[Rfam]
RNA sequence: AUGCCUUAAACUAAUGAGUAAGGAAAAUAGCAGAUCGGUUUGAGACCCGAUCCUCCGGACUUAGUCCUGAAGUAUUUUUGCAGGGUUCAGGCUGUCCCUUCGUGGCCCCCUACUUAGGGGCUGCGGAGGCGCUAGCGGCCUGCCCA
Numbered sequence: 001a002u003g004c005c006u007u008a009a010a011c012u013a014a015u016g017a018g019u020a021a022g023g024a025a026a027a028u029a030g031c032a033g034a035u036c037g038g039u040u041u042g043a044g045a046c047c048c049g050a051u052c053c054u055c056c057g058g059a060c061u062u063a064g065u066c067c068u069g070a071a072g073u074a075u076u077u078u079u080g081c082a083g084g085g086u087u088c089a090g091g092c093u094g095u096c097c098c099u100u101c102g103u104g105g106c107c108c109c110c111u112a113c114u115u116a117g118g119g120g121c122u123g124c125g126g127a128g129g130c131g132c133u134a135g136c137g138g139c140c141u142g143c144c145c146a
Stems, first nucleotide, its partner, number of pairs: 004023005033052006054070002057067002083145004089141007097129002100126010

Background
A member of the RNA family "U12 minor spliceosomal RNA" from Echinostoma caproni, 146 nucleotides long. Taxonomically the source falls in Echinostoma (Eukaryota, Opisthokonta, Lophotrochozoa, Echinostomatoidea). The family has 62 seed sequences and 2,106 matches in Rfam 15.1. The family's RNA type in Rfam is spliceosomal small nuclear RNA. For this family Rfam cites "Pre-mRNA splicing: the discovery of a new spliceosome doubles the challenge" (Tarn and Steitz, Trends Biochem Sci, 1997). The match comes from Rfam's covariance-model search (86 bits).